[Rfam]
RNA sequence: UACUCAUCCAGAGAGGUGGAGGGAAAGGGCCCGAUGAAACCCGGCAACCCGUCCUCAUGCUGCUGUAAAGCAGCCGAGGUCAUGGUGCCAAUUCCUUCAGGACACGUGUUGGUGUCCUGGCAGAUGAGAG
Number, nucleotide and partner (000 for none) at each position: 001u130002a000003c128004u127005c126006a125007u124008c123009c000010a000011g000012a000013g042014a000015g041016g040017u039018g000019g000020a000021g032022g031023g030024a000025a000026a097027g096028g095029g094030c023031c022032c021033g000034a000035u000036g000037a000038a000039a017040c016041c015042c013043g089044g088045c087046a086047a000048c085049c084050c000051g081052u000053c079054c078055u077056c076057a000058u000059g000060c000061u000062g000063c000064u000065g000066u000067a000068a000069a000070g000071c000072a000073g000074c000075c000076g056077a055078g054079g053080u000081c051082a000083u000084g049085g048086u046087g045088c044089c043090a000091a000092u000093u122094c029095c028096u027097u026098c119099a118100g117101g116102a115103c114104a113105c112106g000107u000108g000109u000110u000111g000112g105113u104114g103115u102116c101117c100118u099119g098120g000121c000122a093123g008124a007125u006126g005127a004128g003129a000130g001